[Rfam]
RNA: drz-agam-2-2 ribozyme
RNA sequence: GGUAAGUGAUGCUCUGCAAAUGGGGUAGGAGGCGAUGCCUCGUCCUCAUACCCAACUCCUAUUCCGGCACGUCCACGUCGUGCAGAGCGGUAACAUGCGUUACUAGGGGUGCAAGAGCUCUUUUUGAGGAGGAGCUCUUUUUGCUGCACUAGUUGCAUCAGAUGGUAACGCAUGGCUAAGCCGGAAAGG
Numbered sequence: 001g002g003u004a005a006g007u008g009a010u011g012c013u014c015u016g017c018a019a020a021u022g023g024g025g026u027a028g029g030a031g032g033c034g035a036u037g038c039c040u041c042g043u044c045c046u047c048a049u050a051c052c053c054a055a056c057u058c059c060u061a062u063u064c065c066g067g068c069a070c071g072u073c074c075a076c077g078u079c080g081u082g083c084a085g086a087g088c089g090g091u092a093a094c095a096u097g098c099g100u101u102a103c104u105a106g107g108g109g110u111g112c113a114a115g116a117g118c119u120c121u122u123u124u125u126g127a128g129g130a131g132g133a134g135c136u137c138u139u140u141u142u143g144c145u146g147c148a149c150u151a152g153u154u155g156c157a158u159c160a161g162a163u164g165g166u167a168a169c170g171c172a173u174g175g176c177u178a179a180g181c182c183g184g185a186a187a188g189g
Base pairs, nucleotide, nucleotide: 011088012087013086014085015084016083017082023053024052025051026050027049029047030046032043033042057189058188060186062185063184065183066182067181068180069081070080071079073090074089094174095173096172097171098170099169100168101167102166103165104164105163